[Rfam]
RNA: Small Cajal body specific RNA 6
RNA sequence: GGUCUGUGAUGAAUAGUAAAAGGUCUGAUUAUCCCAAGACCUGCAGUUCCAUGCCCUCUUCUCCCAGCAGUUUCUCUCCAGCCACAGCACAGCAAUGGUGUGGCUGGAGAGUGUUUGCUGACAGUGUGAGAUGUGCUCAGGUCGUGUUCACCUGGAGCAGCGGGGACAUGACUGGGACCAGCAUCCAACAGUCCUGUGUGAAGGAGUUUAGGGUCUUGGAUUGGUCUAACUGGACAUGUGAUCUGACUUUUCUGCUGAGACC
Number, nucleotide and partner (000 for none) at each position: 001g262002g261003u260004c259005u000006g000007u000008g000009a000010u000011g000012a000013a000014u000015a000016g000017u000018a000019a000020a000021a000022g000023g000024u000025c000026u000027g000028a000029u000030u000031a000032u000033c000034c000035c000036a000037a244038g243039a242040c000041c240042u000043g000044c000045a000046g000047u000048u220049c219050c218051a217052u000053g000054c000055c000056c000057u000058c000059u000060u000061c206062u205063c204064c203065c120066a119067g118068c117069a116070g115071u000072u000073u000074c000075u000076c000077u000078c107079c106080a105081g104082c103083c102084a101085c100086a099087g000088c000089a000090c000091a000092g000093c000094a000095a000096u000097g000098g000099u086100g085101u084102g083103g082104c081105u080106g079107g078108a000109g000110a000111g000112u000113g000114u000115u070116u069117g068118c067119u066120g065121a000122c000123a000124g000125u000126g000127u000128g186129a000130g185131a184132u183133g182134u181135g000136c000137u000138c000139a000140g000141g000142u000143c170144g169145u168146g167147u166148u165149c164150a000151c162152c000153u160154g000155g000156a000157g000158c000159a000160g153161c000162g151163g000164g149165g148166a147167c146168a145169u144170g143171a000172c000173u000174g000175g000176g000177a000178c000179c000180a000181g134182c133183a132184u131185c130186c128187a000188a000189c000190a000191g000192u000193c000194c000195u000196g000197u000198g000199u000200g000201a000202a000203g064204g063205a062206g061207u000208u000209u000210a000211g000212g000213g000214u000215c000216u000217u051218g050219g049220a048221u000222u000223g000224g000225u000226c000227u000228a000229a000230c000231u000232g000233g000234a000235c000236a000237u000238g000239u000240g041241a000242u039243c038244u037245g000246a000247c000248u000249u000250u000251u000252c000253u000254g000255c000256u000257g000258a000259g004260a003261c002262c001